RNA sequence: CCGCAGAGUAGAAGCUGGCAGUGGCCUCGUGGCCAUGGGUCAUUGCUCUGGAU
Numbered sequence: 001c002c003g004c005a006g007a008g009u010a011g012a013a014g015c016u017g018g019c020a021g022u023g024g025c026c027u028c029g030u031g032g033c034c035a036u037g038g039g040u041c042a043u044u045g046c047u048c049u050g051g052a053u
Stems, first nucleotide, its partner, number of pairs: 005049006015038001018040002021036006
This 53-nucleotide RNA from Variovorax sp. belongs to the Rfam family "Xanthine riboswitch aptamer (NMT1 RNA)". The base pairs follow the family's consensus structure, which is taken from published work. The source organism's lineage runs through Bacteria, Pseudomonadota, Betaproteobacteria, Comamonadaceae and Variovorax. The literature on the family includes a 2020 paper in RNA by Yu and Breaker, "A bacterial riboswitch class senses xanthine and uric acid to regulate genes associated with purine oxidation".